[Rfam]
RNA sequence: CCAGAUGAUCGGGCGGUCGCGUCGUCUUCGGACGCCGAGGAAAGUCCGGGCUCCACGGUGACAAGGCGGUGGGUAACGCCCACCGGGAGCGAUCCCAGGGAUAGCGCCACAGAAAGCAAACCUCCUCCCUACGGGGCGGGAAGGGUGAAAGGGUGGGGUAAGAGCCCACCGCGGACCUGGUGACAGGGACGGCAUGGCAAGCCCCGCCUGGAGCAAGACCGAAUAGGGAUCCCGCGUCGGCCUCGCGCCGACUAGGCCGUCACUGGCUGAGAGGAUCCGGGUAGGUCGCGAGAGCCGUCCAGCAAUGGCCGGCCUAGAGGAAUGAUCGUCGCCGUCUCCCUGUCUUCGGAUGGGCGGGGCGGAACAGAACCCGGCUUACAGAUCAUCUGGUCCG
Numbered sequence: 001c002c003a004g005a006u007g008a009u010c011g012g013g014c015g016g017u018c019g020c021g022u023c024g025u026c027u028u029c030g031g032a033c034g035c036c037g038a039g040g041a042a043a044g045u046c047c048g049g050g051c052u053c054c055a056c057g058g059u060g061a062c063a064a065g066g067c068g069g070u071g072g073g074u075a076a077c078g079c080c081c082a083c084c085g086g087g088a089g090c091g092a093u094c095c096c097a098g099g100g101a102u103a104g105c106g107c108c109a110c111a112g113a114a115a116g117c118a119a120a121c122c123u124c125c126u127c128c129c130u131a132c133g134g135g136g137c138g139g140g141a142a143g144g145g146u147g148a149a150a151g152g153g154u155g156g157g158g159u160a161a162g163a164g165c166c167c168a169c170c171g172c173g174g175a176c177c178u179g180g181u182g183a184c185a186g187g188g189a190c191g192g193c194a195u196g197g198c199a200a201g202c203c204c205c206g207c208c209u210g211g212a213g214c215a216a217g218a219c220c221g222a223a224u225a226g227g228g229a230u231c232c233c234g235c236g237u238c239g240g241c242c243u244c245g246c247g248c249c250g251a252c253u254a255g256g257c258c259g260u261c262a263c264u265g266g267c268u269g270a271g272a273g274g275a276u277c278c279g280g281g282u283a284g285g286u287c288g289c290g291a292g293a294g295c296c297g298u299c300c301a302g303c304a305a306u307g308g309c310c311g312g313c314c315u316a317g318a319g320g321a322a323u324g325a326u327c328g329u330c331g332c333c334g335u336c337u338c339c340c341u342g343u344c345u346u347c348g349g350a351u352g353g354g355c356g357g358g359g360c361g362g363a364a365c366a367g368a369a370c371c372c373g374g375c376u377u378a379c380a381g382a383u384c385a386u387c388u389g390g391u392c393c394g
Stems, first nucleotide, its partner, number of pairs: 001390010011379001012330007020037002023034004042377003046374005051213004064209005069083005084098001085096004099204002104202002106198003121144002123140003127136003152170006171193001172191002176187004217287004227278006255268004294313004299308003
Overview
The record is a 394-nucleotide RNA from Caulobacter vibrioides, which matches "Bacterial RNase P class A" in Rfam. The family's consensus secondary structure is taken from published work. It is one of the family's seed sequences. NCBI's taxonomy places the organism under Bacteria, Pseudomonadati, Caulobacteraceae, Caulobacter, Caulobacter vibrioides. Rfam classes the family as a ribozyme. Ribonuclease P (RNase P) is a ubiquitous endoribonuclease, found in archaea, bacteria and eukarya as well as chloroplasts and mitochondria. Its best characterised activity is the generation of mature 5'-ends of tRNAs by cleaving the 5'-leader elements of precursor-tRNAs. Cellular RNase Ps are ribonucleoproteins. RNA from bacterial RNase Ps retains its catalytic activity in the absence of the protein subunit, i.e. it is a ribozyme.